This 175-nucleotide sequence from Pristimantibacillus lignocellulolyticus belongs to the Rfam family "c-di-AMP riboswitch aptamer (ydaO/yuaA leader)".
NCBI's taxonomy places the organism under Bacteria, Bacillota, Caryophanales, Paenibacillaceae, Pristimantibacillus (SeqCode).
The match comes from Rfam's covariance-model search (99 bits).
RNA sequence: AAUUCUUAUUCGCUGAGUUUCCAUUAUGGAAAACGGGGGAACCAAUUAUAAUGAUUGUUUGCUGCAGCAAGCACUCGUUGUAUGGGGUGAAUCCUGAUAUAAGUUACUAAUCAGGUAGGGCGACUCUUCCGCCCGAAUCCGACAGCUAACCUCGUAAGCGUUGAUUAAGAGAGGG
Numbered sequence: 001a002a003u004u005c006u007u008a009u010u011c012g013c014u015g016a017g018u019u020u021c022c023a024u025u026a027u028g029g030a031a032a033a034c035g036g037g038g039g040a041a042c043c044a045a046u047u048a049u050a051a052u053g054a055u056u057g058u059u060u061g062c063u064g065c066a067g068c069a070a071g072c073a074c075u076c077g078u079u080g081u082a083u084g085g086g087g088u089g090a091a092u093c094c095u096g097a098u099a100u101a102a103g104u105u106a107c108u109a110a111u112c113a114g115g116u117a118g119g120g121c122g123a124c125u126c127u128u129c130c131g132c133c134c135g136a137a138u139c140c141g142a143c144a145g146c147u148a149a150c151c152u153c154g155u156a157a158g159c160g161u162u163g164a165u166u167a168a169g170a171g172a173g174g175g
Stems, first nucleotide, its partner, number of pairs: 011160004018032005033155006043084002085140003093115006118134004